[Rfam]
A member of the RNA family "L31-Actinobacteria ribosomal protein leader", 44 nucleotides long. The family's RNA type in Rfam is cis-regulatory leader.
RNA sequence: UCGGCCCCGGUUCACGCUGCCGCCUCCGACGGCGACCCGGGUCC
Numbered sequence: 001u002c003g004g005c006c007c008c009g010g011u012u013c014a015c016g017c018u019g020c021c022g023c024c025u026c027c028g029a030c031g032g033c034g035a036c037c038c039g040g041g042u043c044c
Base pairs, nucleotide, nucleotide: 003044004043007040008039009038010037015034016033017032018031019030021028022027